[Rfam]
RNA sequence: ACCGCUAAAAAUUCAUGUUCCUUGCUUCCAUAGGUUGCGGUUGCCUAGACAGGAAGCUUACUAAACCGAAAGGGGCUCUUAACGAUG
Number, nucleotide and partner (000 for none) at each position: 001a000002c000003c000004g000005c000006u000007a000008a000009a000010a000011a000012u000013u000014c000015a000016u000017g076018u075019u074020c073021c072022u071023u070024g057025c056026u055027u054028c053029c052030a000031u000032a046033g045034g044035u000036u000037g000038c000039g000040g000041u000042u000043g000044c034045c033046u032047a000048g000049a000050c000051a000052g029053g028054a027055a026056g025057c024058u000059u000060a000061c000062u000063a000064a000065a000066c000067c000068g000069a000070a023071a022072g021073g020074g019075g018076c017077u000078c000079u000080u000081a000082a000083c000084g000085a000086u000087g000
Rfam assigns this 87-nucleotide RNA from Thorsellia anophelis to the family "RpsF leader". Rfam links the family to the GO terms negative regulation of translation and protein binding. The organism belongs to Thorsellia anophelis, within Bacteria. A reference for the family is Matelska et al. (2013), "S6:S18 ribosomal protein complex interacts with a structural motif present in its own mRNA", RNA. From the family's description: Conserved and widely distributed to many bacterial species RNA structure. It precedes operon containing rpsF, which encodes ribosomal protein S6. The motif also precedes operon containing rpsR, which encodes ribosomal protein S18. The RNA was shown to interact with S6:S18 protein dimer in vitro. It was shown that RpsF leader regulates gene expression in response to the S6:S18 complex, contributing to the regulation of ribosomal protein levels. By type it is a cis-regulatory leader.